[Rfam]
RNA: Bacterial RNase P class A
Organism: Jannaschia pohangensis
RNA sequence: GCGGGGGGCCGGACGGCCGCGGGGUGCAUUCCACCACGAGGAAAGUCCGGACUCCACAAAGCAACGGUGCCGGGUAACGCCCGGGCGGGGUAACCCGACGGAAAGCGCCACAGAAAACAGACCACCGUGGGUUCGCCCGCGGAAAGGGUGAAACGGUGGGGUAAGAGCCCACCGGGGGGCUGGCAACAGCGCCCGCAUGGCAAGCCCCACCGGGAGCAACGCCGAAUAGGGACCUCACGCUCCGGGCAACCGGUGGCACGGGCGCUUUGCCCCAGAGGUCCGGGUUGGCAGCUUGAGGCCCGAAGCGAUUCGCGGUCCAGAGGAAUGGUCGUCACCCGAGGGGCAGCCUUCGGGACAGAAUCCGGCUUACAGGCCCCCCGCACAC
Numbered sequence: 001g002c003g004g005g006g007g008g009c010c011g012g013a014c015g016g017c018c019g020c021g022g023g024g025u026g027c028a029u030u031c032c033a034c035c036a037c038g039a040g041g042a043a044a045g046u047c048c049g050g051a052c053u054c055c056a057c058a059a060a061g062c063a064a065c066g067g068u069g070c071c072g073g074g075u076a077a078c079g080c081c082c083g084g085g086c087g088g089g090g091u092a093a094c095c096c097g098a099c100g101g102a103a104a105g106c107g108c109c110a111c112a113g114a115a116a117a118c119a120g121a122c123c124a125c126c127g128u129g130g131g132u133u134c135g136c137c138c139g140c141g142g143a144a145a146g147g148g149u150g151a152a153a154c155g156g157u158g159g160g161g162u163a164a165g166a167g168c169c170c171a172c173c174g175g176g177g178g179g180c181u182g183g184c185a186a187c188a189g190c191g192c193c194c195g196c197a198u199g200g201c202a203a204g205c206c207c208c209a210c211c212g213g214g215a216g217c218a219a220c221g222c223c224g225a226a227u228a229g230g231g232a233c234c235u236c237a238c239g240c241u242c243c244g245g246g247c248a249a250c251c252g253g254u255g256g257c258a259c260g261g262g263c264g265c266u267u268u269g270c271c272c273c274a275g276a277g278g279u280c281c282g283g284g285u286u287g288g289c290a291g292c293u294u295g296a297g298g299c300c301c302g303a304a305g306c307g308a309u310u311c312g313c314g315g316u317c318c319a320g321a322g323g324a325a326u327g328g329u330c331g332u333c334a335c336c337c338g339a340g341g342g343g344c345a346g347c348c349u350u351c352g353g354g355a356c357a358g359a360a361u362c363c364g365g366c367u368u369a370c371a372g373g374c375c376c377c378c379c380g381c382a383c384a385c
Base pairs, nucleotide, nucleotide: 001381002380003379004378005377006376007375008374009373010372011370012333013332014331015330016329017328018327020038021037023035024034025033026032043368044367045366047365048364049363050362051361052216053215054214055213060268061267065212066211067210068209069208070084071083072082073081074080085099086097087096088095089094100207101206105205106204107201108200109199122147123146125142126141127140128139129138130137131136155173156172157171158170159169160168174196175194176193177192179190180189181188182187221289222288223287230281231280232279233278234277235276260272261271262270263269297316299314301312302311303310304309